The record is a 119-nucleotide sequence from Mesobacillus foraminis, which matches "ylbH leader" in Rfam. Rfam's curators write: This family is a putative regulatory RNA structure that is found upstream of the ylbH gene in B. subtilis and related low GC Gram-positive bacteria. It scores 112 bits against the family's covariance model. A reference for the family is Barrick et al. (2004), "New RNA motifs suggest an expanded scope for riboswitches in bacterial genetic control", Proc Natl Acad Sci U S A.
RNA sequence: AAAGAAAAAACCCUGCAACAUUUGCAGGGUCCUUCUAUAUCCCGCCAUUGGGAUAGAAGGCAAAGGGAGAGGAGAAACCGGAGGAAGAACUUAUGGGGAAACGUAAGUCUUCUCCGCGG
Numbered sequence: 001a002a003a004g005a006a007a008a009a010a011c012c013c014u015g016c017a018a019c020a021u022u023u024g025c026a027g028g029g030u031c032c033u034u035c036u037a038u039a040u041c042c043c044g045c046c047a048u049u050g051g052g053a054u055a056g057a058a059g060g061c062a063a064a065g066g067g068a069g070a071g072g073a074g075a076a077a078c079c080g081g082a083g084g085a086a087g088a089a090c091u092u093a094u095g096g097g098g099a100a101a102c103g104u105a106a107g108u109c110u111u112c113u114c115c116g117c118g119g
Stems, first nucleotide, its partner, number of pairs: 011029008030067005038055006079116004084112004089108005